The family of this 127-nucleotide RNA from Pipistrellus kuhlii is "Small nucleolar RNA SNORA25". The source organism's lineage runs through Eukaryota, Teleostomi, Euteleostomi, Yangochiroptera and Pipistrellus. ACA25 is a member of the H/ACA class of snoRNA that guide the sites of modification of uridines to pseudouridines. The family's consensus secondary structure was predicted with RNAfold. Rfam 15.1 lists 1,129 matches to the family in 449 species. The family's RNA type in Rfam is H/ACA-box small nucleolar RNA. Gene Ontology terms of the family: nucleolus and RNA processing.
[Rfam]
RNA sequence: AGGUCAUUUAGAAGAGAACUUAGGAGACCAAAUCCAGGAGUUCUUAAUGCUGUGGCCUAAGAUUUAAGUUCUUUAUAGGAUGUAAUAGAUACUCAAUAGUGCUAUGUUGUUCUGAGGAGAUAUAAGA
Numbered sequence: 001a002g003g004u005c006a007u008u009u010a011g012a013a014g015a016g017a018a019c020u021u022a023g024g025a026g027a028c029c030a031a032a033u034c035c036a037g038g039a040g041u042u043c044u045u046a047a048u049g050c051u052g053u054g055g056c057c058u059a060a061g062a063u064u065u066a067a068g069u070u071c072u073u074u075a076u077a078g079g080a081u082g083u084a085a086u087a088g089a090u091a092c093u094c095a096a097u098a099g100u101g102c103u104a105u106g107u108u109g110u111u112c113u114g115a116g117g118a119g120a121u122a123u124a125a126g127a
Stems, first nucleotide, its partner, number of pairs: 002057006014045008026035001070120005077113004085105004090101004